Description
The record is a 102-nucleotide RNA from Desulfosporosinus sp. HMP52, which matches "Purine riboswitch aptamer" in Rfam. Lineage of the source: Bacteria > Bacillati > Bacillota > Clostridia > Desulfosporosinus. The base pairs follow the family's consensus structure, which is taken from published work. The match comes from Rfam's covariance-model search (83 bits). Riboswitches are metabolite binding domains within certain messenger RNAs that serve as precision sensors for their corresponding targets. Allosteric rearrangement of mRNA structure is mediated by ligand binding, and this results in modulation of gene expression. A class of riboswitches that selectively recognises guanine and becomes saturated at concentrations as low as 5 nM. In Bacillus subtilis, this mRNA motif is located on at least five separate transcriptional units that together encode 17 genes that are mostly involved in purine transport and purine nucleotide biosynthesis. It has also been shown that some members of this family are specific for adenine instead. Hence this family are termed purine riboswitches.

RNA sequence: GAUCAGUAAAUAAAUAGUGUUCAUAUAGUGGCAGAGAUAUGGUCUGCAAGUUUCUACCGGACUGCCGUAAAUGGUCCGACUAUGAGCGAAAGAAUGUACGAU
Number, nucleotide and partner (000 for none) at each position: 001g000002a000003u000004c000005a000006g000007u000008a000009a000010a000011u000012a000013a000014a000015u000016a000017g000018u088019g087020u086021u085022c084023a083024u082025a081026u000027a000028g000029u049030g000031g047032c046033a045034g044035a043036g000037a000038u000039a000040u000041g000042g000043u035044c034045u033046g032047c031048a000049a029050g000051u000052u000053u000054c000055u000056a000057c000058c078059g077060g076061a075062c074063u073064g072065c000066c000067g000068u000069a000070a000071a000072u064073g063074g062075u061076c060077c059078g058079a000080c000081u025082a024083u023084g022085a021086g020087c019088g018089a000090a000091a000092g000093a000094a000095u000096g000097u000098a000099c000100g000101a000102u000